[Rfam]
RNA sequence: AUACUUACCUGCCAGAGGCGGAAAGAACGAUCAGCAAUGUUCUUCCCCCAGGUCGAGGGUCCUGCCAUUGCACAUCGGUGGAUCUGAAACUUGCGAUAAGAUCUCAAAUUGAGGCUUACUCGGCUGGAAAAUUUAUUCCGCAGGAGAUGCGUACGCGCGUCUCCUU
Numbered sequence: 001a002u003a004c005u006u007a008c009c010u011g012c013c014a015g016a017g018g019c020g021g022a023a024a025g026a027a028c029g030a031u032c033a034g035c036a037a038u039g040u041u042c043u044u045c046c047c048c049c050a051g052g053u054c055g056a057g058g059g060u061c062c063u064g065c066c067a068u069u070g071c072a073c074a075u076c077g078g079u080g081g082a083u084c085u086g087a088a089a090c091u092u093g094c095g096a097u098a099a100g101a102u103c104u105c106a107a108a109u110u111g112a113g114g115c116u117u118a119c120u121c122g123g124c125u126g127g128a129a130a131a132u133u134u135a136u137u138c139c140g141c142a143g144g145a146g147a148u149g150c151g152u153a154c155g156c157g158c159g160u161c162u163c164c165u166u
Stems, first nucleotide, its partner, number of pairs: 012127004017048002020046003024043005050092004057085003061081002065078002094122003097118003103114002142165005148159004